The record is a 206-nucleotide sequence from Qiania dongpingensis, which matches "Enterococcus sRNA 1300" in Rfam.

RNA sequence: AUAGCAUGCGUAUUAGAUAAGCAUUGAAAAAAAGGAUUUUCCCAUUUUCAACAUGGGCUUUUUUGUCAUGCUUAUUUUGCGGAUGCUAUACAAAAAACUAACGACGUAUAGAUAUAGUGCAAGCUAUGCCUUAGUUUUGUUGUACUGCUCUGUGCAUUAUAAAUGCAGGUCAAUGCUCAUGUUGAGGAUUGACCUGCAUUUUUUGU
Numbered sequence: 001a002u003a004g005c006a007u008g009c010g011u012a013u014u015a016g017a018u019a020a021g022c023a024u025u026g027a028a029a030a031a032a033a034g035g036a037u038u039u040u041c042c043c044a045u046u047u048u049c050a051a052c053a054u055g056g057g058c059u060u061u062u063u064u065g066u067c068a069u070g071c072u073u074a075u076u077u078u079g080c081g082g083a084u085g086c087u088a089u090a091c092a093a094a095a096a097a098c099u100a101a102c103g104a105c106g107u108a109u110a111g112a113u114a115u116a117g118u119g120c121a122a123g124c125u126a127u128g129c130c131u132u133a134g135u136u137u138u139g140u141u142g143u144a145c146u147g148c149u150c151u152g153u154g155c156a157u158u159a160u161a162a163a164u165g166c167a168g169g170u171c172a173a174u175g176c177u178c179a180u181g182u183u184g185a186g187g188a189u190u191g192a193c194c195u196g197c198a199u200u201u202u203u204u205g206u
Base pairs, nucleotide, nucleotide: 002088003087004086005085006084007083009081010080011079015077016076017075018074019073020072021071022070023069024068026066028064029063030062031061032060033059035058042056043055044054045053090140091139092138093137094136095135098134099133100132101131106130163199164198165197166196167195168194170192171191172190173189174188176186177185178184179183

The base pairs follow the family's consensus structure, which was predicted with RNAfold. Expressed in mid and late exponential phases of growth. The family has 3 seed sequences and 115 matches in Rfam 15.1. It scores 53 bits against the family's covariance model. NCBI's taxonomy places the organism under Bacteria, Bacillota, Lachnospirales, Lachnospiraceae, Qiania.